[Rfam]
Rfam assigns this 305-nucleotide sequence from Brachypodium distachyon to the family "Plant signal recognition particle RNA". The base pairs follow the family's consensus structure, which is taken from published work.

RNA sequence: GCUGAGCUCAGUAGCGAGAGCUUGUAACCCGAGUGGGAGCUUUGAGGUGGUGUGGACUUUGCCGUACAGUUGUGAACCUGGGCAGGGAAUUGCUACUGCUGGCCCGCCCGUUCCAAGUUGCGUAGUGGAUCUGCUGGGGCCUAUGCGAAAGCUGGGCCUCACGGAGCCUAGAGCGGCAGGCACCGCGUGAGGCUGGUUUCACAGAGCAGCGACCACUGCCCGCUUCCAACGGUGGAAGGAUAACGGGCCGCUGCAUUCCUGGCCCGCUUGGGUCUCAUAGCCUACUCCAAAGAACCACCACUACU
Numbered sequence: 001g002c003u004g005a006g007c008u009c010a011g012u013a014g015c016g017a018g019a020g021c022u023u024g025u026a027a028c029c030c031g032a033g034u035g036g037g038a039g040c041u042u043u044g045a046g047g048u049g050g051u052g053u054g055g056a057c058u059u060u061g062c063c064g065u066a067c068a069g070u071u072g073u074g075a076a077c078c079u080g081g082g083c084a085g086g087g088a089a090u091u092g093c094u095a096c097u098g099c100u101g102g103c104c105c106g107c108c109c110g111u112u113c114c115a116a117g118u119u120g121c122g123u124a125g126u127g128g129a130u131c132u133g134c135u136g137g138g139g140c141c142u143a144u145g146c147g148a149a150a151g152c153u154g155g156g157c158c159u160c161a162c163g164g165a166g167c168c169u170a171g172a173g174c175g176g177c178a179g180g181c182a183c184c185g186c187g188u189g190a191g192g193c194u195g196g197u198u199u200c201a202c203a204g205a206g207c208a209g210c211g212a213c214c215a216c217u218g219c220c221c222g223c224u225u226c227c228a229a230c231g232g233u234g235g236a237a238g239g240a241u242a243a244c245g246g247g248c249c250g251c252u253g254c255a256u257u258c259c260u261g262g263c264c265c266g267c268u269u270g271g272g273u274c275u276c277a278u279a280g281c282c283u284a285c286u287c288c289a290a291a292g293a294a295c296c297a298c299c300a301c302u303a304c305u
Base pairs, nucleotide, nucleotide: 001040002039003038004023005022006021007020008019009018028037029036030035044304046302047301048300049299050298051297052296054295057292058291059290060289061288064285065284066283070280071279072278073277074276075275078272079271080265081264082263083261084260085259086258088257091255092254094253095252100250101249102248103247104246105245106244108239109238111237112236113235114234115233117230118229119228120227122226124224125223126222128167130165131164132163133162135161136160137159138158139157140156141155142154143153145152146151168173175220176219177218178217179216186211187210188209193204194203195202

The source organism's lineage runs through Eukaryota, Poaceae, Pooideae, Stipodae and Brachypodium. Rfam links the family to the GO terms signal recognition particle, endoplasmic reticulum targeting and SRP-dependent cotranslational protein targeting to membrane, signal sequence recognition. The match comes from Rfam's covariance-model search (215 bits).